[Rfam]
RNA sequence: GCUCGCAUAGCUCAGUUGGUAGAGCGCGGCACUAGUAAUGCCGAGGUCUACGGUUCAAAUCCGUAUGUGAGCA
Numbered sequence: 001g002c003u004c005g006c007a008u009a010g011c012u013c014a015g016u017u018g019g020u021a022g023a024g025c026g027c028g029g030c031a032c033u034a035g036u037a038a039u040g041c042c043g044a045g046g047u048c049u050a051c052g053g054u055u056c057a058a059a060u061c062c063g064u065a066u067g068u069g070a071g072c073a
Stems, first nucleotide, its partner, number of pairs: 001072007010025004027043005049065005
RNA: tRNA
Organism: Pseudogymnoascus sp. VKM F-3775